[Rfam]
Shown here is a 76-nucleotide sequence from Prunus yedoensis, a member of the family "Small nucleolar RNA Z105". For this family Rfam cites "The high diversity of snoRNAs in plants: identification and comparative study of 120 snoRNA genes from Oryza sativa" (Chen et al., Nucleic Acids Res, 2003). The organism belongs to Prunus yedoensis, within Eukaryota. The match comes from Rfam's covariance-model search (50 bits). The base pairs follow the family's consensus structure, which was predicted with CMfinder.
RNA sequence: AGGGCAUGGUGAGGAUAAUCCUGUAUUUGUCCGAUUAAUUUCAUGAUUGGAAUUACAAACCUCCUACUCAUUCUGA
Number, nucleotide and partner (000 for none) at each position: 001a000002g000003g000004g000005c000006a071007u070008g069009g068010u000011g000012a000013g000014g000015a000016u000017a000018a000019u000020c000021c000022u000023g000024u000025a000026u000027u051028u050029g000030u000031c045032c000033g000034a000035u000036u000037a000038a000039u000040u000041u000042c000043a000044u000045g031046a000047u000048u000049g000050g028051a027052a000053u000054u000055a000056c000057a000058a000059a000060c000061c000062u000063c000064c000065u000066a000067c000068u009069c008070a007071u006072u000073c000074u000075g000076a000